[Rfam]
RNA sequence: ACAAUGUUCCGCUACCAGGUGAAUCCAGGUAAGAGCAUUGG
Number, nucleotide and partner (000 for none) at each position: 001a000002c000003a039004a038005u037006g036007u035008u034009c033010c000011g000012c000013u031014a030015c029016c028017a000018g026019g000020u000021g000022a000023a000024u000025c000026c018027a000028g016029g015030u014031a013032a000033g009034a008035g007036c006037a005038u004039u003040g000041g000
Shown here is a 41-nucleotide RNA sequence from Pontibacillus marinus, a member of the family "Ribosomal protein L19 leader". Its family is annotated with regulation of gene expression in the Gene Ontology. This family is a putative r-protein leader autoregulatory structure found in B. subtilis and other low-GC Gram-positive bacteria. It is located in the 5' untranslated regions of mRNAs encoding ribosomal protein L19 (rplS). The family's consensus secondary structure was predicted with CMfinder. The match comes from Rfam's covariance-model search (38 bits). The literature on the family includes a 1994 paper in Prog Nucleic Acid Res Mol Biol by Zengel and Lindahl, "Diverse mechanisms for regulating ribosomal protein synthesis in Escherichia coli".